A member of the RNA family "cspA thermoregulator" from Salmonella enterica, 377 nucleotides long. A reference for the family is Giuliodori et al. (2010), "The cspA mRNA is a thermosensor that modulates translation of the cold-shock protein CspA", Mol Cell. Taxonomically the source falls in Salmonella enterica subsp. enterica (Bacteria, Pseudomonadota, Enterobacterales, Enterobacteriaceae). Gene Ontology terms of the family: response to temperature stimulus and regulation of translation. The sequence is in the family's curated seed alignment.

[Rfam]
RNA sequence: AACGGUUUGACGUACAGACCAUUAAAGCAGUUUAGUAAUGCAAGUCCGUCCAAUGAGUUAUCCAUUAGAUACCCCUCGUAGUGCGCAUUUCCUUAACGCUUCAAAAUCUGUAAAGCACGCCAUAACGGCCGAAAGGCACACUUAAUUAUUAAAGGUAAUACACUAUGUCCGGUAAAAUGACUGGUAUCGUAAAAUGGUUCAACGCUGAUAAAGGCUUCGGCUUUAUUACUCCUGAUGACGGUUCUAAAGACGUGUUCGUACACUUCUCCGCUAUUCAGAACGAUGGUUACAAAUCUCUGGACGAAGGUCAGAAAGUUUCCUUCACCAUCGAAAGCGGCGCUAAAGGCCCGGCAGCUGGUAACGUAACCAGCCUGUAA
Numbered sequence: 001a002a003c004g005g006u007u008u009g010a011c012g013u014a015c016a017g018a019c020c021a022u023u024a025a026a027g028c029a030g031u032u033u034a035g036u037a038a039u040g041c042a043a044g045u046c047c048g049u050c051c052a053a054u055g056a057g058u059u060a061u062c063c064a065u066u067a068g069a070u071a072c073c074c075c076u077c078g079u080a081g082u083g084c085g086c087a088u089u090u091c092c093u094u095a096a097c098g099c100u101u102c103a104a105a106a107u108c109u110g111u112a113a114a115g116c117a118c119g120c121c122a123u124a125a126c127g128g129c130c131g132a133a134a135g136g137c138a139c140a141c142u143u144a145a146u147u148a149u150u151a152a153a154g155g156u157a158a159u160a161c162a163c164u165a166u167g168u169c170c171g172g173u174a175a176a177a178u179g180a181c182u183g184g185u186a187u188c189g190u191a192a193a194a195u196g197g198u199u200c201a202a203c204g205c206u207g208a209u210a211a212a213g214g215c216u217u218c219g220g221c222u223u224u225a226u227u228a229c230u231c232c233u234g235a236u237g238a239c240g241g242u243u244c245u246a247a248a249g250a251c252g253u254g255u256u257c258g259u260a261c262a263c264u265u266c267u268c269c270g271c272u273a274u275u276c277a278g279a280a281c282g283a284u285g286g287u288u289a290c291a292a293a294u295c296u297c298u299g300g301a302c303g304a305a306g307g308u309c310a311g312a313a314a315g316u317u318u319c320c321u322u323c324a325c326c327a328u329c330g331a332a333a334g335c336g337g338c339g340c341u342a343a344a345g346g347c348c349c350g351g352c353a354g355c356u357g358g359u360a361a362c363g364u365a366a367c368c369a370g371c372c373u374g375u376a377a
Base pairs, nucleotide, nucleotide: 004020005019006018007017008016009015026233027232029230030229031228040223043222044221045220046219047214049212057209058208059207060206062204065202066201068200069199071198072197073196077167078166079165080164081163082162083161090155091154093152094151095150096149098116099115100114101113128137129136130135169184170183171182172181173180236330237329238328240326241325249257250256260318262316263315264314265313267312268311270309271307272306274301275300276299277298278297279296282295283294284293335350336349337348339347340346341345351375352374353373354372355370356369357368358367359366